[Rfam]
RNA sequence: AAAAGAUGGAGAUCAGACACCAUACACAAACGAGGCGGAACCGAAAAGCCAUACGAGUAGGGGACUA
Numbered sequence: 001a002a003a004a005g006a007u008g009g010a011g012a013u014c015a016g017a018c019a020c021c022a023u024a025c026a027c028a029a030a031c032g033a034g035g036c037g038g039a040a041c042c043g044a045a046a047a048g049c050c051a052u053a054c055g056a057g058u059a060g061g062g063g064a065c066u067a
Stems, first nucleotide, its partner, number of pairs: 006023004034050003041061002
The family of this 67-nucleotide RNA sequence from Dysgonomonas sp. PF1-16 is "DUF805 RNA".
By type it is a cis-regulatory element.
A search with the family's covariance model found it, with a score of 68 bits.
The family has 46 seed sequences and 281 matches in Rfam 15.1.
NCBI's taxonomy places the organism under Bacteria, Pseudomonadati, Bacteroidia, Bacteroidales, Dysgonomonas.